[Rfam]
RNA sequence: AACUGUAACCUAUGUAAAUUGCUCUGGAUAAGAGCGUCUGCUAAAUGACAAUAA
Number, nucleotide and partner (000 for none) at each position: 001a000002a000003c000004u000005g000006u000007a000008a000009c000010c000011u000012a000013u043014g041015u040016a039017a000018a000019u000020u036021g035022c034023u033024c032025u031026g000027g000028a000029u000030a000031a025032g024033a023034g022035c021036g020037u000038c000039u016040g015041c014042u000043a013044a000045a000046u000047g000048a000049c000050a000051a000052u000053a000054a000
Rfam assigns this 54-nucleotide RNA sequence from Megalops atlanticus to the family "UnaL2 LINE 3' element". The family's consensus secondary structure is taken from published work. The organism belongs to Megalops, within Eukaryota. A search with the family's covariance model found it, with a score of 57 bits.